[Rfam]
RNA sequence: AAGUGAUAUGAUGGUACACCAUCUUUCGGGACUGACCUGAAAUGGAGAGACUAUUAAUACUGAUCACUU
Dot-bracket structure: ((((((.........................................................))))))
Numbered sequence: 001a002a003g004u005g006a007u008a009u010g011a012u013g014g015u016a017c018a019c020c021a022u023c024u025u026u027c028g029g030g031a032c033u034g035a036c037c038u039g040a041a042a043u044g045g046a047g048a049g050a051c052u053a054u055u056a057a058u059a060c061u062g063a064u065c066a067c068u069u
Stems, first nucleotide, its partner, number of pairs: 001069006
This 69-nucleotide RNA sequence from Pampusana beccarii belongs to the Rfam family "Small nucleolar RNA SNORD2". The family has 17 seed sequences and 1,116 matches in Rfam 15.1. The source organism's lineage runs through Eukaryota, Metazoa, Sauria, Coelurosauria and Pampusana. The family's consensus secondary structure was predicted with WAR. A reference for the family is Zhou et al. (2004), "Identification of a novel box C/D snoRNA from mouse nucleolar cDNA library", Gene.